[Rfam]
Nucleotides: 083
Stems, first nucleotide, its partner, number of pairs: 003080002011036002016031006034069001039076004044072003047067006
Number, partner (000 for none) and nucleotide at each position: 001000a002000a003080c004079g005000a006000c007000a008000a009000a010000g011036g012035c013000a014000a015000a016031c017030c018029c019028g020027u021026c022000g023000c024000g025000a026021g027020g028019c029018g030017g031016g032000g033000a034069c035012g036011c037000a038000a039076a040075g041074c042073c043000a044072c045071g046070g047067g048066c049065c050064u051063c052062g053000g054000a055000g056000g057000a058000u059000g060000g061000g062052c063051g064050a065049g066048g067047c068000a069034g070046c071045c072044g073042g074041g075040c076039u077000a078000c079004c080003g081000a082000a083000a

A member of the RNA family "c-di-GMP-I-GGC riboswitch aptamer" from Rubrobacter marinus, 83 nucleotides long.